[Rfam]
RNA sequence: CGUAUCAUUGUGCCCUGCGGCGAGCCUGCCGCAGGGCGAUAAGUCCGAAAGAGGGAUGAUAUGAC
Numbered sequence: 001c002g003u004a005u006c007a008u009u010g011u012g013c014c015c016u017g018c019g020g021c022g023a024g025c026c027u028g029c030c031g032c033a034g035g036g037c038g039a040u041a042a043g044u045c046c047g048a049a050a051g052a053g054g055g056a057u058g059a060u061a062u063g064a065c
Stems, first nucleotide, its partner, number of pairs: 001063009011038011045054002
This 65-nucleotide sequence from Bifidobacterium jacchi belongs to the Rfam family "SAM-VI (S-adenosyl methionine) riboswitch aptamer". Pairs were carried over by alignment from the consensus structure, which was predicted with RNAfold.